[Rfam]
RNA: L17 ribosomal protein downstream element
RNA sequence: AGAGUGUUAUGAUGUUGGAUGUUAUGCAUCCGAGUCUAGCUCGUUGCAACUCUCCGGUUUUACCGGAGAG
Numbered sequence: 001a002g003a004g005u006g007u008u009a010u011g012a013u014g015u016u017g018g019a020u021g022u023u024a025u026g027c028a029u030c031c032g033a034g035u036c037u038a039g040c041u042c043g044u045u046g047c048a049a050c051u052c053u054c055c056g057g058u059u060u061u062a063c064c065g066g067a068g069a070g
Base pairs, nucleotide, nucleotide: 002042003041004040005039011036012035013034017031018030019029020028021027022026050070051069052068053067054066055065056064057063
Dot-bracket structure: .((((.....(((...((((((...))))))..)))..)))).......((((((((.....))))))))